RNA sequence: GGAGAAGCAAAAUGAUGAGCAAUUCUGGCUGGAGUCCCAAAAAGGCAUGAGUGAGUGUGUGUGUGUGUGUAUGUGUCUGUGUAUAUGUCUGUGUAUCCUUGUCUGUGCAUGCACACAUGUGUCUGAGUCCAAAUGUGUGUGACUGGUUUUAGGGAACUAGCUAUGUGCCUUGUAUUGGGCCAUGACAGUAAAACUGAUAAGAUCUGAUUGCUUC
Numbered sequence: 001g002g003a004g005a006a007g008c009a010a011a012a013u014g015a016u017g018a019g020c021a022a023u024u025c026u027g028g029c030u031g032g033a034g035u036c037c038c039a040a041a042a043a044g045g046c047a048u049g050a051g052u053g054a055g056u057g058u059g060u061g062u063g064u065g066u067g068u069g070u071a072u073g074u075g076u077c078u079g080u081g082u083a084u085a086u087g088u089c090u091g092u093g094u095a096u097c098c099u100u101g102u103c104u105g106u107g108c109a110u111g112c113a114c115a116c117a118u119g120u121g122u123c124u125g126a127g128u129c130c131a132a133a134u135g136u137g138u139g140u141g142a143c144u145g146g147u148u149u150u151a152g153g154g155a156a157c158u159a160g161c162u163a164u165g166u167g168c169c170u171u172g173u174a175u176u177g178g179g180c181c182a183u184g185a186c187a188g189u190a191a192a193a194c195u196g197a198u199a200a201g202a203u204c205u206g207a208u209u210g211c212u213u214c
Stems, first nucleotide, its partner, number of pairs: 004214007014204003026191001028189004038125002041122001043120001045118001048115001051114003055110004063103001067098001069096007127140002130137001143160006162184004167180004

Shown here is a 214-nucleotide RNA sequence from Cavia porcellus, a member of the family "Small nucleolar RNA ZL1". Its family is annotated with RNA processing and nucleolus in the Gene Ontology. NCBI's taxonomy places the organism under Eukaryota, Eumetazoa, Euteleostomi, Mammalia, Cavia. It is annotated as a C/D-box small nucleolar RNA. On this family, see Kishore et al., Genome Biol 2013: "Insights into snoRNA biogenesis and processing from PAR-CLIP of snoRNA core proteins and small RNA sequencing". Rfam describes the family as follows. Host gene TRRAP. Predicted target U2@U47.